This 193-nucleotide RNA from Paenibacillus sp. FSL H7-0357 belongs to the Rfam family "6S / SsrS RNA". NCBI's taxonomy places the organism under Bacteria, Bacillati, Bacilli, Caryophanales, Paenibacillus. The family's RNA type in Rfam is non-coding RNA gene. The family has 150 seed sequences and 5,006 matches in Rfam 15.1. Pairs were carried over by alignment from the consensus structure, which is taken from published work.

Nucleotides: 193
Base pairs, nucleotide, nucleotide: 002191003190004189006187007186008185009184010183012180013179014178015177017176018175019174034161036159037158039156040155041154042153043152044151059137060136061135063133064132065131066130070127072126073125074124076121077120084113085112089109090108091107092106093105
Number, partner (000 for none) and nucleotide at each position: 001000c002191a003190a004189a005000u006187c007186c008185u009184g010183c011000g012180a013179u014178g015177u016000a017176c018175g019174u020000u021000u022000a023000c024000g025000g026000u027000u028000g029000c030000u031000c032000g033000u034161u035000g036159u037158u038000u039156u040155g041154a042153a043152c044151c045000a046000a047000u048000g049000a050000u051000a052000a053000u054000g055000u056000c057000u058000u059137g060136g061135g062000a063133g064132a065131u066130c067000u068000a069000u070127a071000c072126g073125a074124a075000g076121c077120g078000c079000g080000g081000c082000u083000g084113a085112a086000a087000g088000g089109c090108c091107c092106u093105g094000u095000c096000u097000a098000u099000a100000c101000g102000a103000c104000g105093c106092g107091g108090g109089g110000a111000a112085u113084u114000c115000a116000a117000a118000a119000a120077c121076g122000a123000c124074u125073u126072c127070u128000g129000c130066g131065g132064u133063c134000a135061c136060c137059c138000a139000c140000c141000u142000g143000c144000u145000a146000u147000a148000g149000c150000a151044g152043g153042u154041u155040c156039a157000g158037a159036a160000g161034a162000c163000a164000c165000u166000g167000u168000a169000g170000c171000c172000g173000g174019a175018c176017g177015g178014c179013a180012u181000a182000g183010g184009c185008g186007g187006g188000u189004u190003u191002u192000c193000u